This 233-nucleotide RNA sequence from Candidatus Psychracetigena formicireducens belongs to the Rfam family "HNH endonuclease-associated RNA and ORF (HEARO) RNA". The family has 139 seed sequences and 952 matches in Rfam 15.1. It scores 109 bits against the family's covariance model.

[Rfam]
RNA sequence: GUCAGCCACCCCCACCUAAAUCUAUAUGAUUUAGAAAGGGGCUUGGAAAAAGCCCAGGUUGAUUAGGAGGUAUUGAAAAAUGCAGAAGUUAGAAGAGAGAACCGAAAGGAACACACCUAGGGAUGCUUCUCAAGUCCGUAGCAACUGUGGCUCUGUGAUUAAACAUGACUGUGGAGUAGGUCAAGUGUUGCAGGGCUCCAAAACCUCUUCUAACAACUCCGAUGAGAACCAAC
Numbered sequence: 001g002u003c004a005g006c007c008a009c010c011c012c013c014a015c016c017u018a019a020a021u022c023u024a025u026a027u028g029a030u031u032u033a034g035a036a037a038g039g040g041g042c043u044u045g046g047a048a049a050a051a052g053c054c055c056a057g058g059u060u061g062a063u064u065a066g067g068a069g070g071u072a073u074u075g076a077a078a079a080a081u082g083c084a085g086a087a088g089u090u091a092g093a094a095g096a097g098a099g100a101a102c103c104g105a106a107a108g109g110a111a112c113a114c115a116c117c118u119a120g121g122g123a124u125g126c127u128u129c130u131c132a133a134g135u136c137c138g139u140a141g142c143a144a145c146u147g148u149g150g151c152u153c154u155g156u157g158a159u160u161a162a163a164c165a166u167g168a169c170u171g172u173g174g175a176g177u178a179g180g181u182c183a184a185g186u187g188u189u190g191c192a193g194g195g196c197u198c199c200a201a202a203a204c205c206u207c208u209u210c211u212a213a214c215a216a217c218u219c220c221g222a223u224g225a226g227a228a229c230c231a232a233c
Base pairs, nucleotide, nucleotide: 001063002062003061004060005059006058007057010041011040012038016034017033018032019031020030021029022028042052043051044050066220067219068218069217071082072081073080088214089213090212091211092210093209094208095207096206097205113148114147117141118140119139121137122136123135124134127228128227129226130225131224132223151195152194153193154192155191156190157189158188159187163186164185166183167182168181169180170179
Dot-bracket structure: (((((((..(((...(((((((.....)))))))...).))(((.....)))....)))))))..((((.(((......))).....((((((((((...............((..(((.((((..[[[[[[.)))).))).....))..(((((((((...((.(((((........))))).))))))))))).........))))))))))..))))..]]]]]].....